[Rfam]
RNA sequence: UCUUCAGUGAUGAUUGAUAACAGUGACUUUCGUUCUUCUGAGUCUACUGAAGCCAACCCCUCUGUCCUGAGAAGA
Numbered sequence: 001u002c003u004u005c006a007g008u009g010a011u012g013a014u015u016g017a018u019a020a021c022a023g024u025g026a027c028u029u030u031c032g033u034u035c036u037u038c039u040g041a042g043u044c045u046a047c048u049g050a051a052g053c054c055a056a057c058c059c060c061u062c063u064g065u066c067c068u069g070a071g072a073a074g075a
Base pairs, nucleotide, nucleotide: 001075002074003073005071
Small nucleolar RNA SNORD59: a 75-nucleotide RNA from Oncorhynchus kisutch. By type it is a C/D-box small nucleolar RNA. Gene Ontology terms of the family: RNA processing and nucleolus.